RNA: PyrD leader
Organism: Buttiauxella agrestis
RNA sequence: AUUCCAUUCAGGGGCGUUAUCGUUAAUAAUACUGCCCCGGUUUGCAUACCGGGAAUCCAGGAGAGUUCAUGUAC
Numbered sequence: 001a002u003u004c005c006a007u008u009c010a011g012g013g014g015c016g017u018u019a020u021c022g023u024u025a026a027u028a029a030u031a032c033u034g035c036c037c038c039g040g041u042u043u044g045c046a047u048a049c050c051g052g053g054a055a056u057c058c059a060g061g062a063g064a065g066u067u068c069a070u071g072u073a074c
Base pairs, nucleotide, nucleotide: 036053037052038051039050040049041048